Rfam assigns this 384-nucleotide RNA from Periweissella cryptocerci to the family "Bacterial RNase P class B". Lineage of the source: Bacteria > Bacillati > Lactobacillales > Lactobacillaceae > Periweissella. The match comes from Rfam's covariance-model search (300 bits).
RNA sequence: AAUUACUGGUAAUCGCGCGUAACCUUGAGUUACGUGAGGAAAGUCCUUGCUCGCACAGGCUGCGAUGCCUGUAGUGUUUGUGCUCGGCGAAAAAAUAAACCGGGGCAUCGAUUUAUCGGUGACGGCGGAAGAACCGGCUAAGGUUUCGGCUAUGCUCUAGUAUUUCUGAAAGUGCCACAGUGACGAGCUGACUCGGAAACGGGUCAGAUGGAACGCGGUAAACCCCUCAAGCGGGAAACCCAAACUUAUGGUAGGGGAGCUCGGCCUAGUGAAUUGAAACGAUGGUCGUGGUCACGAUGCACAGGAUGUAUCGUGUGAAGAUAGAUGAUUACUGCUCUGAUAACUUGCAUGACGUUACCAGAGAACAUAACGAGGCUUAUAGGG
Numbered sequence: 001a002a003u004u005a006c007u008g009g010u011a012a013u014c015g016c017g018c019g020u021a022a023c024c025u026u027g028a029g030u031u032a033c034g035u036g037a038g039g040a041a042a043g044u045c046c047u048u049g050c051u052c053g054c055a056c057a058g059g060c061u062g063c064g065a066u067g068c069c070u071g072u073a074g075u076g077u078u079u080g081u082g083c084u085c086g087g088c089g090a091a092a093a094a095a096u097a098a099a100c101c102g103g104g105g106c107a108u109c110g111a112u113u114u115a116u117c118g119g120u121g122a123c124g125g126c127g128g129a130a131g132a133a134c135c136g137g138c139u140a141a142g143g144u145u146u147c148g149g150c151u152a153u154g155c156u157c158u159a160g161u162a163u164u165u166c167u168g169a170a171a172g173u174g175c176c177a178c179a180g181u182g183a184c185g186a187g188c189u190g191a192c193u194c195g196g197a198a199a200c201g202g203g204u205c206a207g208a209u210g211g212a213a214c215g216c217g218g219u220a221a222a223c224c225c226c227u228c229a230a231g232c233g234g235g236a237a238a239c240c241c242a243a244a245c246u247u248a249u250g251g252u253a254g255g256g257g258a259g260c261u262c263g264g265c266c267u268a269g270u271g272a273a274u275u276g277a278a279a280c281g282a283u284g285g286u287c288g289u290g291g292u293c294a295c296g297a298u299g300c301a302c303a304g305g306a307u308g309u310a311u312c313g314u315g316u317g318a319a320g321a322u323a324g325a326u327g328a329u330u331a332c333u334g335c336u337c338u339g340a341u342a343a344c345u346u347g348c349a350u351g352a353c354g355u356u357a358c359c360a361g362a363g364a365a366c367a368u369a370a371c372g373a374g375g376c377u378u379a380u381a382g383g384g
Base pairs, nucleotide, nucleotide: 004384006382008333009332010331011330012329013328014327016036017035018034019033020032021031041378042377043376045375046374047373048372049371050235051234052233053232054231055072056071057070058069059068060067078230079229080228082226083104084103085102086101087100105123106121107120108119109118110117111116124225125224127166128165129164130163136156137155138154142151143150144149172223173222174219175218176217188207189206190205191204192203193202194201195200239256240255241254260290262288263287264286265285266284292318293317294316295315296314335363336362337361338360339359341357342356343355